[Rfam]
The record is a 259-nucleotide RNA from Octodon degus, which matches "Mason-Pfizer monkey virus packaging signal" in Rfam. This family represents a group of sequences that are related to the Mason-Pfizer monkey virus (MPMV) packaging signal. The packaging signal is located in the 5' UTR and is required for specific RNA encapsidation. Gene Ontology term of the family: viral genome packaging. For this family Rfam cites "Mutational analysis of the predicted secondary RNA structure of the Mason-Pfizer monkey virus packaging signal" (Mustafa et al., Virus Res, 2004). Rfam classes the family as a cis-regulatory element. The organism belongs to Octodon, within Eukaryota.
RNA sequence: UGGUGCCCAAUGUGGCUGGAGAACAGGGGAAUUCAUGAGCGAUGCCAUUCAUGAAGCACACAAAGGUUAAGACAGAGCACCGGUAAACGCGGUAACCUGCUGCAUUUUCCAGGCCUUAGUAAGUGAGCAGCGAUUAUGGGCCGGGCAUUAAGCCAACAUGAAAUAUUUGUUGAAAGUUUAGGCAAGGCUUUAAAGACAUGAGGAGCAAAGGUUAAAAUUAAGGAUUUGUGUCAAUAUUUUGAAUAUAUUAAACAAGUUU
Numbered sequence: 001u002g003g004u005g006c007c008c009a010a011u012g013u014g015g016c017u018g019g020a021g022a023a024c025a026g027g028g029g030a031a032u033u034c035a036u037g038a039g040c041g042a043u044g045c046c047a048u049u050c051a052u053g054a055a056g057c058a059c060a061c062a063a064a065g066g067u068u069a070a071g072a073c074a075g076a077g078c079a080c081c082g083g084u085a086a087a088c089g090c091g092g093u094a095a096c097c098u099g100c101u102g103c104a105u106u107u108u109c110c111a112g113g114c115c116u117u118a119g120u121a122a123g124u125g126a127g128c129a130g131c132g133a134u135u136a137u138g139g140g141c142c143g144g145g146c147a148u149u150a151a152g153c154c155a156a157c158a159u160g161a162a163a164u165a166u167u168u169g170u171u172g173a174a175a176g177u178u179u180a181g182g183c184a185a186g187g188c189u190u191u192a193a194a195g196a197c198a199u200g201a202g203g204a205g206c207a208a209a210g211g212u213u214a215a216a217a218u219u220a221a222g223g224a225u226u227u228g229u230g231u232c233a234a235u236a237u238u239u240u241g242a243a244u245a246u247a248u249u250a251a252a253c254a255a256g257u258u259u
Stems, first nucleotide, its partner, number of pairs: 006029003012024002034044003075117002077114002083109001085107001089103004124143002128140001131138002149192003152188003199241005205235001209227005